[Rfam]
RNA: Ciliate telomerase RNA
Organism: Paramecium caudatum
Nucleotides: 210
Stems, first nucleotide, its partner, number of pairs: 006113002009110002012103001021044003026038004075087002120200007131193002134191001135189005
Number, partner (000 for none) and nucleotide at each position: 001000u002000g003000a004000c005000a006113a007112u008000u009110g010109c011000u012103g013000u014000a015000u016000u017000c018000a019000u020000u021044c022043u023042c024000c025000u026038u027037u028036c029035u030000c031000g032000a033000u034000a035029g036028g037027a038026a039000u040000u041000g042023g043022a044021g045000u046000c047000a048000u049000a050000c051000a052000a053000c054000c055000c056000c057000a058000g059000a060000a061000a062000c063000c064000a065000u066000c067000c068000u069000u070000a071000u072000a073000c074000c075087u076086u077000g078000a079000g080000u081000a082000u083000g084000c085000u086076g087075a088000a089000u090000u091000c092000c093000g094000u095000u096000a097000g098000c099000g100000u101000a102000g103012c104000u105000c106000u107000u108000g109010g110009c111000u112007a113006u114000u115000c116000u117000c118000a119000u120200a121199g122198u123197g124196a125195u126194u127000g128000c129000a130000u131193a132192u133000u134191u135189g136188g137187a138186g139185u140000u141000a142000c143000u144000u145000a146000u147000u148000c149000g150000u151000c152000a153000a154000u155000u156000c157000a158000a159000u160000u161000a162000a163000a164000a165000u166000u167000c168000a169000u170000g171000a172000c173000g174000a175000a176000c177000c178000u179000a180000a181000a182000a183000g184000u185139a186138c187137u188136c189135u190000g191134a192132a193131u194126g195125g196124u197123u198122a199121u200120u201000u202000u203000u204000u205000a206000u207000a208000a209000u210000u